Description: The record is a 132-nucleotide RNA sequence from Dioscorea zingiberensis, which matches "small nucleolar RNA snoR135" in Rfam. The match comes from Rfam's covariance-model search (57 bits). Pairs were carried over by alignment from the consensus structure, which was predicted with RNAalifold.

RNA sequence: GGUGUGUGUAUAUGGGCUCUAUUUUUAUAUGAAUCUUGCCCAAAUACUUAAGGGCUAGACUGAAACUGGGGAAGAUGGGCAGUUGGGAAUAAUCUAUAUUUGGGCUUCUCAACGUUCAUCUUCCCCAUAUUU
Numbered sequence: 001g002g003u004g005u006g007u008g009u010a011u012a013u014g015g016g017c018u019c020u021a022u023u024u025u026u027a028u029a030u031g032a033a034u035c036u037u038g039c040c041c042a043a044a045u046a047c048u049u050a051a052g053g054g055c056u057a058g059a060c061u062g063a064a065a066c067u068g069g070g071g072a073a074g075a076u077g078g079g080c081a082g083u084u085g086g087g088a089a090u091a092a093u094c095u096a097u098a099u100u101u102g103g104g105c106u107u108c109u110c111a112a113c114g115u116u117c118a119u120c121u122u123c124c125c126c127a128u129a130u131u132u
Stems, first nucleotide, its partner, number of pairs: 001049001006034002009031003068126011082113004

Description:
For this family Rfam cites "Mining small RNA sequencing data: a new approach to identify small nucleolar RNAs in Arabidopsis" (Chen and Wu, Nucleic Acids Res, 2009).